Background: A member of the RNA family "mir-219 microRNA precursor family" from Microctonus hyperodae, 78 nucleotides long.
[Rfam]
RNA sequence: UCAGGCUGUGAUUGUCCAAACGCAAUUCUUGUCUGCACAUUACGAAAUCAAGAAUCGUGUAGGGACAUCAACGCUUGA
Numbered sequence: 001u002c003a004g005g006c007u008g009u010g011a012u013u014g015u016c017c018a019a020a021c022g023c024a025a026u027u028c029u030u031g032u033c034u035g036c037a038c039a040u041u042a043c044g045a046a047a048u049c050a051a052g053a054a055u056c057g058u059g060u061a062g063g064g065a066c067a068u069c070a071a072c073g074c075u076u077g078a
Stems, first nucleotide, its partner, number of pairs: 002077005009070004014066004021059003025055007
Dot-bracket structure: .(((((..((((.((((...(((.(((((((.................))))))).)))...))))))))..))))).

The match comes from Rfam's covariance-model search (63 bits).
A reference for the family is Lim et al. (2003), "Vertebrate microRNA genes", Science.